[Rfam]
RNA sequence: CCGCAUCAUGCAGGAGAGAGCGGUCAGCAAGACCGCCGCCGAAGGCGCAAGCGCACCCGCAAUCGCUCAGGCAAAAGGACUGCAUCAUCGGA
Number, nucleotide and partner (000 for none) at each position: 001c000002c000003g000004c000005a000006u087007c000008a085009u084010g083011c082012a081013g080014g000015a000016g000017a000018g000019a000020g036021c035022g034023g033024u000025c000026a000027g000028c000029a000030a000031g000032a000033c023034c022035g021036c020037c000038g072039c071040c070041g068042a067043a000044g000045g066046c065047g064048c000049a000050a000051g060052c059053g000054c000055a000056c000057c000058c000059g052060c051061a000062a000063u000064c047065g046066c045067u042068c041069a000070g040071g039072c038073a000074a000075a000076a000077g000078g000079a000080c013081u012082g011083c010084a009085u008086c000087a006088u000089c000090g000091g000092a000